[Rfam]
RNA sequence: UUGACUAUGUAAUGAGAAUUGUUAUUAUUAACUCAACUGGUCGCGAGAUCAGCCAGGUAAGCAAAGAGUCCCUCAUCAGGCUCUUCGGUUAUCUCCUCAUCAGGCUAAUCACGGUUAUUGACCCGGCACUUUGCCGGGUCUUUUUUUU
Numbered sequence: 001u002u003g004a005c006u007a008u009g010u011a012a013u014g015a016g017a018a019u020u021g022u023u024a025u026u027a028u029u030a031a032c033u034c035a036a037c038u039g040g041u042c043g044c045g046a047g048a049u050c051a052g053c054c055a056g057g058u059a060a061g062c063a064a065a066g067a068g069u070c071c072c073u074c075a076u077c078a079g080g081c082u083c084u085u086c087g088g089u090u091a092u093c094u095c096c097u098c099a100u101c102a103g104g105c106u107a108a109u110c111a112c113g114g115u116u117a118u119u120g121a122c123c124c125g126g127c128a129c130u131u132u133g134c135c136g137g138g139u140c141u142u143u144u145u146u147u148u
Base pairs, nucleotide, nucleotide: 034056037052038051039050040049041048042047062087064085065084066083067082068081069078095104096103097102120140121139122138123137124136125135126134127133
RNA: PrrF RNA
Organism: Pseudomonas kuykendallii